[Rfam]
RNA sequence: AUUUAUCAAAUUUUUAGACAAUUCAAUUUAAUGAUAUAAACCAUUCGAAAGGAGAUAAUUAAAAUGACUAACACCACAACUGCAAACACUCUACCGACAACAACAAAUAUUUUAGUCAUUUUAAUUAUUUGCUAGGACUCGAACUUUAGUAAUUGUAUCUACUAAAUGUUUAAGUCCUAUUUCCGAUUGAAUGGGACUUUUGAA
Dot-bracket structure: ......................(((................(((((((..(..((...((((((((..(...................................)..)))))))).............))...(((((....((.((((((........))))))..).)...))))).....)..))))))).......))).